The record is a 173-nucleotide RNA from Carlito syrichta, which matches "U12 minor spliceosomal RNA" in Rfam.
RNA sequence: GUGCCUUAAACUUAUGGAAAAUAAGGAAAAUAACGAUUUUCCUUACUUUAAGGAAAAUAAGGAUUUGGGAUGAUGCCAAAUACUCAUGGCAAGAUGAAUUUUUUAGCGGGUAAAGGUUGCCCCUAAGGUGACACGCCUACUUUGCGGGAUGCCUGGGAGUCACAAUCUACCCA
Numbered sequence: 001g002u003g004c005c006u007u008a009a010a011c012u013u014a015u016g017g018a019a020a021a022u023a024a025g026g027a028a029a030a031u032a033a034c035g036a037u038u039u040u041c042c043u044u045a046c047u048u049u050a051a052g053g054a055a056a057a058u059a060a061g062g063a064u065u066u067g068g069g070a071u072g073a074u075g076c077c078a079a080a081u082a083c084u085c086a087u088g089g090c091a092a093g094a095u096g097a098a099u100u101u102u103u104u105a106g107c108g109g110g111u112a113a114a115g116g117u118u119g120c121c122c123c124u125a126a127g128g129u130g131a132c133a134c135g136c137c138u139a140c141u142u143u144g145c146g147g148g149a150u151g152c153c154u155g156g157g158a159g160u161c162a163c164a165a166u167c168u169a170c171c172c173a
Stems, first nucleotide, its partner, number of pairs: 004053007062083001065080002068077002085093001108172004114168006123157002126154005132148001134146003
Record summary:
The family is grouped with related families in Rfam's "U2 clan". The match comes from Rfam's covariance-model search (93 bits).